Notes: Manganese Mn2+ riboswitch aptamer (yybP-ykoY): a 187-nucleotide RNA from Noviherbaspirillum sp. Root189. Lineage of the source: Bacteria > Betaproteobacteria > Burkholderiales > Oxalobacteraceae > Noviherbaspirillum.
RNA sequence: GCCCCCGUCAUUGGGGAGUAGCCGCCCUCCGAAAGCGAGAGGGGCUUGCGUCAACAGACUUAACCUGCGUCAUCGACAGCAGGUUAUGGCGCAAGCGAUCCAGGUUUGGCGAGACCUUUGACCAUGCCGCCUCAGCUUAGGGCCGGAAGGCGCAUGGUCAUUGGUAUCUGUCCGGCCCUGGAGCACU
Numbered sequence: 001g002c003c004c005c006c007g008u009c010a011u012u013g014g015g016g017a018g019u020a021g022c023c024g025c026c027c028u029c030c031g032a033a034a035g036c037g038a039g040a041g042g043g044g045c046u047u048g049c050g051u052c053a054a055c056a057g058a059c060u061u062a063a064c065c066u067g068c069g070u071c072a073u074c075g076a077c078a079g080c081a082g083g084u085u086a087u088g089g090c091g092c093a094a095g096c097g098a099u100c101c102a103g104g105u106u107u108g109g110c111g112a113g114a115c116c117u118u119u120g121a122c123c124a125u126g127c128c129g130c131c132u133c134a135g136c137u138u139a140g141g142g143c144c145g146g147a148a149g150g151c152g153c154a155u156g157g158u159c160a161u162u163g164g165u166a167u168c169u170g171u172c173c174g175g176c177c178c179u180g181g182a183g184c185a186c187u
Stems, first nucleotide, its partner, number of pairs: 026042003044096010061086008102187002